About this RNA: The record is a 124-nucleotide RNA from Durio zibethinus, which matches "Small nucleolar RNA SNORD14" in Rfam. Gene Ontology terms of the family: nucleolus and RNA processing. The family's RNA type in Rfam is C/D-box small nucleolar RNA. Rfam 15.1 lists 4,559 matches to the family in 936 species. Lineage of the source: Eukaryota > Magnoliopsida > rosids > Malvaceae > Durio. Rfam's curators write: U14 small nucleolar RNA (U14 snoRNA) is required for early cleavages of eukaryotic precursor rRNAs. In yeasts, this molecule possess a stem-loop region (known as the Y-domain) which is essential for function.
RNA sequence: GGUUGAUGAUGACAAAUCCAAAGGCUUGUUUCUCAAAACAUUCGCAGUGGCCGCCUAAGAGCUUUCGCUAUCGCCAGGAUCGAGAGCGUUUGCUGCUUUAAUCCUUCCUUGGAUGUCCGAAACU
Numbered sequence: 001g002g003u004u005g006a007u008g009a010u011g012a013c014a015a016a017u018c019c020a021a022a023g024g025c026u027u028g029u030u031u032c033u034c035a036a037a038a039c040a041u042u043c044g045c046a047g048u049g050g051c052c053g054c055c056u057a058a059g060a061g062c063u064u065u066c067g068c069u070a071u072c073g074c075c076a077g078g079a080u081c082g083a084g085a086g087c088g089u090u091u092g093c094u095g096c097u098u099u100a101a102u103c104c105u106u107c108c109u110u111g112g113a114u115g116u117c118c119g120a121a122a123c124u
Stems, first nucleotide, its partner, number of pairs: 001124004061087006